RNA sequence: UAGAAGCUCCAUCUAUCAAUGGCUAAGACCCCCUGUCUUAGUGUAUAGGAGUUAUUGAAAAAUAAGGGAGCAAUACCACCUUCUUGUUUUAUCAAGAGGGCAAUAUUGCUCCUUUUUU
Numbered sequence: 001u002a003g004a005a006g007c008u009c010c011a012u013c014u015a016u017c018a019a020u021g022g023c024u025a026a027g028a029c030c031c032c033c034u035g036u037c038u039u040a041g042u043g044u045a046u047a048g049g050a051g052u053u054a055u056u057g058a059a060a061a062a063u064a065a066g067g068g069a070g071c072a073a074u075a076c077c078a079c080c081u082u083c084u085u086g087u088u089u090u091a092u093c094a095a096g097a098g099g100g101c102a103a104u105a106u107u108g109c110u111c112c113u114u115u116u117u118u
Stems, first nucleotide, its partner, number of pairs: 009022004064115012079100002082097004
RNA: Plastid-psbA-1 3UTR RNA